Shown here is an 83-nucleotide sequence from Oryza brachyantha, a member of the family "Small nucleolar RNA Z199".
RNA sequence: AUUCAAGUGAUGAGAGAAUAACUGCAACAAUAUGAUGGGAGUUAUGCUCCUAUGAUUCCGAAGUAUUUAAGUCUCUGAUGAAU
Dot-bracket structure: (((((...............................(((((.....)))))...........................)))))
Numbered sequence: 001a002u003u004c005a006a007g008u009g010a011u012g013a014g015a016g017a018a019u020a021a022c023u024g025c026a027a028c029a030a031u032a033u034g035a036u037g038g039g040a041g042u043u044a045u046g047c048u049c050c051u052a053u054g055a056u057u058c059c060g061a062a063g064u065a066u067u068u069a070a071g072u073c074u075c076u077g078a079u080g081a082a083u
Stems, first nucleotide, its partner, number of pairs: 001083005037051005
It scores 100 bits against the family's covariance model. The organism belongs to Oryza, within Eukaryota. From the family's description: snoZ199 is a C/D box small nucleolar RNA, which acts as a methylation guide RNA for sites on 18S and 25S rRNA. Rice snoZ199 is reported to be homologous to Arabidopsis snoR13. The literature on the family includes a 2003 paper in Nucleic Acids Res by Chen et al., "The high diversity of snoRNAs in plants: identification and comparative study of 120 snoRNA genes from Oryza sativa".